A member of the RNA family "Z6 small nucleolar RNA" from Rhinopithecus roxellana, 74 nucleotides long. Rfam links the family to the GO terms nucleolus and RNA processing. Lineage of the source: Eukaryota > Opisthokonta > Euteleostomi > Eutheria > Rhinopithecus.
[Rfam]
RNA sequence: UGCUCUGUUGACCUGCCUCUGUCCGUCCAGGGCUCCCGGGAGCCAGGGGAGACGCUGCCUCAGAAGCUGAAGCG
Numbered sequence: 001u002g003c004u005c006u007g008u009u010g011a012c013c014u015g016c017c018u019c020u021g022u023c024c025g026u027c028c029a030g031g032g033c034u035c036c037c038g039g040g041a042g043c044c045a046g047g048g049g050a051g052a053c054g055c056u057g058c059c060u061c062a063g064a065a066g067c068u069g070a071a072g073c074g
Stems, first nucleotide, its partner, number of pairs: 001074004